[Rfam]
RNA sequence: AGCGGGGCUAGAGUCGCGCCUAGCCACUGUCCCAGUGUCCUGGUGUGCUAGAGUGCUCGCAGAUUGAACCUCUUUUGUUAAUUCAUUGGCUGCGGUCUAUAACAGUGACCCAGUCAGUCACCAACUCAGACGCACUU
Numbered sequence: 001a002g003c004g005g006g007g008c009u010a011g012a013g014u015c016g017c018g019c020c021u022a023g024c025c026a027c028u029g030u031c032c033c034a035g036u037g038u039c040c041u042g043g044u045g046u047g048c049u050a051g052a053g054u055g056c057u058c059g060c061a062g063a064u065u066g067a068a069c070c071u072c073u074u075u076u077g078u079u080a081a082u083u084c085a086u087u088g089g090c091u092g093c094g095g096u097c098u099a100u101a102a103c104a105g106u107g108a109c110c111c112a113g114u115c116a117g118u119c120a121c122c123a124a125c126u127c128a129g130a131c132g133c134a135c136u137u
Base pairs, nucleotide, nucleotide: 002060003059004058005057006056007054008053009052012049013048015047016046017045018044019043020042023039025037026036073129074128077125078124079123085118086117087116088115089114091112092111094110095109096108097107
RNA: Small nucleolar RNA SNORA3/SNORA45 family
Organism: Gadus morhua